[Rfam]
RNA sequence: GCGUCCCACCCUCCUUCCAGGGUGUUUCCUCCCAAGAAAAACUCCGGCCGUGUCGUCUGACGCGGCCUUUUUUCUGUUCUGA
Number, nucleotide and partner (000 for none) at each position: 001g000002c000003g000004u000005c000006c000007c000008a023009c022010c021011c020012u000013c000014c000015u000016u000017c000018c000019a000020g011021g010022g009023u008024g000025u000026u000027u000028c000029c000030u000031c000032c000033c000034a000035a000036g000037a000038a000039a000040a000041a000042c000043u000044c000045c000046g067047g066048c065049c064050g063051u062052g061053u060054c059055g000056u000057c000058u000059g054060a053061c052062g051063c050064g049065g048066c047067c046068u000069u000070u000071u000072u000073u000074c000075u000076g000077u000078u000079c000080u000081g000082a000
The family of this 82-nucleotide sequence from Brevundimonas goettingensis is "Makes More Granules Regulator RNA (mmgR)". Pairs were carried over by alignment from the consensus structure. Its family is annotated with DNA-templated transcription, termination, response to nitrogen compound and protein binding in the Gene Ontology. By type it is a small RNA. Lineage of the source: Bacteria > Pseudomonadati > Alphaproteobacteria > Caulobacterales > Brevundimonas. A search with the family's covariance model found it, with a score of 48 bits. The literature on the family includes a 2005 paper in Genome Biol by Corbino et al., "Evidence for a second class of S-adenosylmethionine riboswitches and other regulatory RNA motifs in alpha-proteobacteria".